[Rfam]
RNA sequence: UUGGGAACAGCACGACCGCAAGUCUGACUCGCUGCAUUGUGCAGCUUGGGAUUGCGGUAGUGC
Numbered sequence: 001u002u003g004g005g006a007a008c009a010g011c012a013c014g015a016c017c018g019c020a021a022g023u024c025u026g027a028c029u030c031g032c033u034g035c036a037u038u039g040u041g042c043a044g045c046u047u048g049g050g051a052u053u054g055c056g057g058u059a060g061u062g063c
Stems, first nucleotide, its partner, number of pairs: 010063004015058007024050002031045006

Rfam assigns this 63-nucleotide RNA sequence from Salinarchaeum sp. IM2453 to the family "S15-Halobacteria ribosomal protein leader". It is annotated as a cis-regulatory leader. The match comes from Rfam's covariance-model search (76 bits). A reference for the family is Eckert and Weinberg (2020), "Discovery of 20 novel ribosomal leader candidates in bacteria and archaea", BMC Microbiol. Lineage of the source: Archaea > Methanobacteriota > Halobacteria > Halobacteriales > Salinarchaeum. Pairs were carried over by alignment from the consensus structure, which is taken from published work. The family is grouped with related families in Rfam's "Ribosomal Protein S15 Leader clan".